[Rfam]
Rfam assigns this 241-nucleotide RNA sequence from Candidatus Thiomargarita nelsonii to the family "HNH endonuclease-associated RNA and ORF (HEARO) RNA".
RNA sequence: GUCAACAACCCCUAAGCCCUUCGGGACUUAGGGGCUUUUCAUCUUAGGAUUGAUAGCCCAGUUGACCAGGCUUAGUUUUACUACGUUAGGGAUGAAUAUAUAGGCACUCCGUCGAUACUUCACCAGUCACGGACUCUGCGGCAAAUCAUUAAACAGGUGUAAGGGUUUAAAGCCAGUGUGAUUUGUUUAGGUAGCUUGCUACCUAUAAACCGUCUCAUAACAUUGCCGAGGUGAAUUUUAC
Numbered sequence: 001g002u003c004a005a006c007a008a009c010c011c012c013u014a015a016g017c018c019c020u021u022c023g024g025g026a027c028u029u030a031g032g033g034g035c036u037u038u039u040c041a042u043c044u045u046a047g048g049a050u051u052g053a054u055a056g057c058c059c060a061g062u063u064g065a066c067c068a069g070g071c072u073u074a075g076u077u078u079u080a081c082u083a084c085g086u087u088a089g090g091g092a093u094g095a096a097u098a099u100a101u102a103g104g105c106a107c108u109c110c111g112u113c114g115a116u117a118c119u120u121c122a123c124c125a126g127u128c129a130c131g132g133a134c135u136c137u138g139c140g141g142c143a144a145a146u147c148a149u150u151a152a153a154c155a156g157g158u159g160u161a162a163g164g165g166u167u168u169a170a171a172g173c174c175a176g177u178g179u180g181a182u183u184u185g186u187u188u189a190g191g192u193a194g195c196u197u198g199c200u201a202c203c204u205a206u207a208a209a210c211c212g213u214c215u216c217a218u219a220a221c222a223u224u225g226c227c228g229a230g231g232u233g234a235a236u237u238u239u240a241c
Base pairs, nucleotide, nucleotide: 001066002065003064004063005062006061010034011033012031013030018025019024035056036055038053069227070226071225074082075081076080085221086220087219088218090216091214092213093212094211104139105138108133109132110131111130112129114128115127116126117237119235120234121233122232123231124230141186142185143184144183145182146181147180148179149178153177154176156174157173158172160170162168

Notes:
The literature on the family includes a 2009 paper in Nature by Weinberg et al., "Exceptional structured noncoding RNAs revealed by bacterial metagenome analysis". A search with the family's covariance model found it, with a score of 106 bits.